[Rfam]
RNA: mir-146 microRNA precursor family
RNA sequence: AGAAGUGCUCUACUAUGAGAACUGAAUUCCAUAGAUGGUAGCUUUUCUAGGUGUCAUCUAUGGGCUCAGUUCUUUUGGCAUGGUACUGGUUU
Number, nucleotide and partner (000 for none) at each position: 001a000002g000003a000004a000005g000006u000007g000008c083009u082010c000011u080012a000013c078014u000015a000016u000017g000018a073019g072020a071021a070022c069023u068024g067025a066026a000027u000028u000029c000030c000031a000032u000033a059034g058035a057036u056037g000038g000039u000040a000041g000042c000043u000044u000045u000046u000047c000048u000049a000050g000051g000052u000053g000054u000055c000056a036057u035058c034059u033060a000061u000062g000063g000064g000065c000066u025067c024068a023069g022070u021071u020072c019073u018074u000075u000076u000077g000078g013079c000080a011081u000082g009083g008084u000085a000086c000087u000088g000089g000090u000091u000092u000